RNA sequence: CCUGGUCAUAUGAUGAAUCAUUUCGGAUGUAAACACAGACCUGUUCUGAAUGCGCAAAUCCUUGUUGAUAUUUCCGUUGCCUUCCUUCUGAUGACCUCAA
Numbered sequence: 001c002c003u004g005g006u007c008a009u010a011u012g013a014u015g016a017a018u019c020a021u022u023u024c025g026g027a028u029g030u031a032a033a034c035a036c037a038g039a040c041c042u043g044u045u046c047u048g049a050a051u052g053c054g055c056a057a058a059u060c061c062u063u064g065u066u067g068a069u070a071u072u073u074c075c076g077u078u079g080c081c082u083u084c085c086u087u088c089u090g091a092u093g094a095c096c097u098c099a100a
Stems, first nucleotide, its partner, number of pairs: 003099003024076004
RNA: Small nucleolar RNA Z13/snr52
Organism: Paecilomyces variotii